[Rfam]
RNA sequence: UGUCGGUCCUCCCGCAAUGCUAGGCUGCAAACCCCGCCAGGCCCGGAAGGGAGCAACGGUAGUGGCUGACGCGUGUGCCGGGAUGUGGCUGAUGGGG
Number, nucleotide and partner (000 for none) at each position: 001u000002g000003u000004c091005g090006g089007u088008c087009c000010u083011c082012c081013c080014g079015c075016a000017a074018u073019g072020c071021u000022a000023g067024g066025c065026u064027g063028c062029a000030a000031a000032c000033c000034c059035c058036g057037c000038c000039a000040g000041g000042c051043c050044c049045g000046g000047a000048a000049g044050g043051g042052a000053g000054c000055a000056a000057c036058g035059g034060u000061a000062g028063u027064g026065g025066c024067u023068g000069a000070c000071g020072c019073g018074u017075g015076u000077g000078c000079c014080g013081g012082g011083a010084u000085g000086u000087g008088g007089c006090u005091g004092a000093u000094g000095g000096g000097g000
RNA: Bacterial small signal recognition particle RNA
Organism: Cobetia sp. UCD-24C